[Rfam]
RNA sequence: GCUUUCCUUCGGGGUCGGGUGAAAGUCCCAACCGGCGGUGAUCGGAGCGAGCCGGACAAAACGGGCAACCGUAUGUCCGGCGCUCUCCGUCAGUCCGUGACCCGGAUUGAACGAAUUGUUCAAUGCGGUGGACCUGGUGAAAAUCCGGGACCGACAGUAUAGUCUGGAUGGGAGAAGGAGGAG
Numbered sequence: 001g002c003u004u005u006c007c008u009u010c011g012g013g014g015u016c017g018g019g020u021g022a023a024a025g026u027c028c029c030a031a032c033c034g035g036c037g038g039u040g041a042u043c044g045g046a047g048c049g050a051g052c053c054g055g056a057c058a059a060a061a062c063g064g065g066c067a068a069c070c071g072u073a074u075g076u077c078c079g080g081c082g083c084u085c086u087c088c089g090u091c092a093g094u095c096c097g098u099g100a101c102c103c104g105g106a107u108u109g110a111a112c113g114a115a116u117u118g119u120u121c122a123a124u125g126c127g128g129u130g131g132a133c134c135u136g137g138u139g140a141a142a143a144u145c146c147g148g149g150a151c152c153g154a155c156a157g158u159a160u161a162g163u164c165u166g167g168a169u170g171g172g173a174g175a176a177g178g179a180g181g182a183g
Base pairs, nucleotide, nucleotide: 003181004180005179006178007177008176009175010174017029018028019027031163032162033153034152035098036097037096038095102128103127133149134148135147136146137145155166156165157164
Rfam assigns this 183-nucleotide RNA from Paenibacillus oryzae to the family "FMN riboswitch aptamer (RFN element)".
About the family: The RFN element is a highly conserved domain that is found frequently in the 5'-untranslated regions of prokaryotic mRNAs that encode for flavin mononucleotide (FMN) biosynthesis and transport proteins.
For this family Rfam cites "An mRNA structure that controls gene expression by binding FMN" (Winkler et al., Proc Natl Acad Sci U S A, 2002).
The base pairs follow the family's consensus structure, which is taken from published work.